Background:
Rfam assigns this 78-nucleotide RNA from Paspalum vaginatum to the family "Small nucleolar RNA SNORD18". Rfam links the family to the GO terms RNA processing and nucleolus. On this family, see Prislei et al., Nucleic Acids Res 1993: "Two different snoRNAs are encoded in introns of amphibian and human L1 ribosomal protein genes". The family is grouped with related families in Rfam's "SNORD18 clan".
RNA sequence: GGGAUAUGAUGAAUUACAUUUGGUCCGUGUUUCUGAUCAUUUCUUGAUGAGUAAAAACACUCCUAUAUUUCUGAUCCC
Numbered sequence: 001g002g003g004a005u006a007u008g009a010u011g012a013a014u015u016a017c018a019u020u021u022g023g024u025c026c027g028u029g030u031u032u033c034u035g036a037u038c039a040u041u042u043c044u045u046g047a048u049g050a051g052u053a054a055a056a057a058c059a060c061u062c063c064u065a066u067a068u069u070u071c072u073g074a075u076c077c078c
Base pairs, nucleotide, nucleotide: 001078002077003076004075